[Rfam]
RNA sequence: GGGGGUCAAAUUGACUCUAGUAGGGAGUCCUCUUUUACAAAGUGACUCCUUAGUAGAGUCACAUUGAUUCCUGG
Numbered sequence: 001g002g003g004g005g006u007c008a009a010a011u012u013g014a015c016u017c018u019a020g021u022a023g024g025g026a027g028u029c030c031u032c033u034u035u036u037a038c039a040a041a042g043u044g045a046c047u048c049c050u051u052a053g054u055a056g057a058g059u060c061a062c063a064u065u066g067a068u069u070c071c072u073g074g
Stems, first nucleotide, its partner, number of pairs: 012061007021052009
The family of this 74-nucleotide RNA sequence from Diaphorina citri is "mir-929 microRNA precursor family".
Taxonomically the source falls in Diaphorina (Eukaryota, Ecdysozoa, Neoptera, Diaphorininae).
The match comes from Rfam's covariance-model search (69 bits).